SAM riboswitch aptamer (S box leader): a 107-nucleotide RNA sequence from Geobacter sulfurreducens. The family is grouped with related families in Rfam's "SAM clan". The family's consensus secondary structure is taken from published work.
RNA sequence: AACUUAUCAAGAGCGACCGAGGGACAGGCCCGGUGACGUCGCGGCAACCUCCCCAUGGGGGGAAGGUGCCAAUUCCUGCGAGACCGACAGGUUUCGGGAGAUAAGGA
Numbered sequence: 001a002a003c004u005u006a007u008c009a010a011g012a013g014c015g016a017c018c019g020a021g022g023g024a025c026a027g028g029c030c031c032g033g034u035g036a037c038g039u040c041g042c043g044g045c046a047a048c049c050u051c052c053c054c055a056u057g058g059g060g061g062g063a064a065g066g067u068g069c070c071a072a073u074u075c076c077u078g079c080g081a082g083a084c085c086g087a088c089a090g091g092u093u094u095c096g097g098g099a100g101a102u103a104a105g106g107a
Base pairs, nucleotide, nucleotide: 003105004104005103006102007101008100013042014041015040016039017038021031022030023029025078026077027076028075043070044069045068046067048066049065050062051061052060053059074099079096080095081094082093083092084091
Lineage of the source: Bacteria > Pseudomonadati > Desulfuromonadia > Geobacterales > Geobacter sulfurreducens.